[Rfam]
RNA sequence: AGGGUUAGAACACAGCUUAAUCCGCUACCGCAACGGCAGCGGACGAGGGGAGCGCCACGCCGGCAGCGCCUCCCCGAAGGCAGGCCAGACCUGCCGGGCCCGGCACCCGGGCCAUGGGACAUAACAGUCAAC
Numbered sequence: 001a002g003g004g005u006u007a008g009a010a011c012a013c014a015g016c017u018u019a020a021u022c023c024g025c026u027a028c029c030g031c032a033a034c035g036g037c038a039g040c041g042g043a044c045g046a047g048g049g050g051a052g053c054g055c056c057a058c059g060c061c062g063g064c065a066g067c068g069c070c071u072c073c074c075c076g077a078a079g080g081c082a083g084g085c086c087a088g089a090c091c092u093g094c095c096g097g098g099c100c101c102g103g104c105a106c107c108c109g110g111g112c113c114a115u116g117g118g119a120c121a122u123a124a125c126a127g128u129c130a131a132c
Stems, first nucleotide, its partner, number of pairs: 021043006028036002049073003052069004079095006097113006

The record is a 132-nucleotide RNA from Pseudomonas sp. FeS53a, which matches "rmf RNA" in Rfam. The family's RNA type in Rfam is cis-regulatory element. The organism belongs to Pseudomonas, within Bacteria. Pairs were carried over by alignment from the consensus structure, which is taken from published work.